[Rfam]
Background:
This 347-nucleotide part of an RNA from Thermoanaerobacterium thermosaccharolyticum belongs to the Rfam family "Bacterial large subunit ribosomal RNA". The organism belongs to Thermoanaerobacterium thermosaccharolyticum, within Bacteria. A reference for the family is Cannone et al. (2002), "The comparative RNA web (CRW) site: an online database of comparative sequence and structure information for ribosomal, intron, and other RNAs", BMC Bioinformatics. Rfam's curators put it in the seed alignment.

RNA sequence: GGAAAUUUGAGAGGAACUGCCCUUAGUACGAGAGGACCGGGGUGGACAAACCGAUGGUGUACCAGUUGCGAAGCCAUUCGCACAGCUGGGUAGCCAAGUUUGGAAGGGAUAAACGCUGAAAGCAUCUAAGCGUGAAACCCACCUCAAGAAAAGAUUUCCCAUCUGGCACUCAACUAUACUUACUGAAGGAAAAAAGCACUAUGUACAAAUGUUAGGGAAUGAAAUAAAAUAGAUUACAGUAGGUAGAGUUGAGUGCCAGAGUAAGACACCUUGGAGAAGACGAGGUAGAUAGGCCGGAGGUGUAAGAGUAGAAAUACUUUGAGCUGACCGGUACUAAUAAGUCGAGG
Numbered sequence: 001g002g003a004a005a006u007u008u009g010a011g012a013g014g015a016a017c018u019g020c021c022c023u024u025a026g027u028a029c030g031a032g033a034g035g036a037c038c039g040g041g042g043u044g045g046a047c048a049a050a051c052c053g054a055u056g057g058u059g060u061a062c063c064a065g066u067u068g069c070g071a072a073g074c075c076a077u078u079c080g081c082a083c084a085g086c087u088g089g090g091u092a093g094c095c096a097a098g099u100u101u102g103g104a105a106g107g108g109a110u111a112a113a114c115g116c117u118g119a120a121a122g123c124a125u126c127u128a129a130g131c132g133u134g135a136a137a138c139c140c141a142c143c144u145c146a147a148g149a150a151a152a153g154a155u156u157u158c159c160c161a162u163c164u165g166g167c168a169c170u171c172a173a174c175u176a177u178a179c180u181u182a183c184u185g186a187a188g189g190a191a192a193a194a195a196g197c198a199c200u201a202u203g204u205a206c207a208a209a210u211g212u213u214a215g216g217g218a219a220u221g222a223a224a225u226a227a228a229a230u231a232g233a234u235u236a237c238a239g240u241a242g243g244u245a246g247a248g249u250u251g252a253g254u255g256c257c258a259g260a261g262u263a264a265g266a267c268a269c270c271u272u273g274g275a276g277a278a279g280a281c282g283a284g285g286u287a288g289a290u291a292g293g294c295c296g297g298a299g300g301u302g303u304a305a306g307a308g309u310a311g312a313a314a315u316a317c318u319u320u321g322a323g324c325u326g327a328c329c330g331g332u333a334c335u336a337a338u339a340a341g342u343c344g345a346g347g
Stems, first nucleotide, its partner, number of pairs: 001159008011145004017045007047102005055096003062089005067082006106140003113133005162260014262345001265343003269285005290336003293332005299325002306319005